[Rfam]
RNA sequence: CUUCUGGAAAGAGGCGCGUCUUCGAAUGCGUCCGCCGACGGGAUAACGAUCUCAGGCAAAUCGACAGAAG
Numbered sequence: 001c002u003u004c005u006g007g008a009a010a011g012a013g014g015c016g017c018g019u020c021u022u023c024g025a026a027u028g029c030g031u032c033c034g035c036c037g038a039c040g041g042g043a044u045a046a047c048g049a050u051c052u053c054a055g056g057c058a059a060a061u062c063g064a065c066a067g068a069a070g
Base pairs, nucleotide, nucleotide: 001070002069003068004067005066006065013032014031015030016029017028018027034057035056036055037053038052041051042050
This 70-nucleotide RNA sequence from Brytella acorum belongs to the Rfam family "Glycine riboswitch aptamer". It scores 34 bits against the family's covariance model.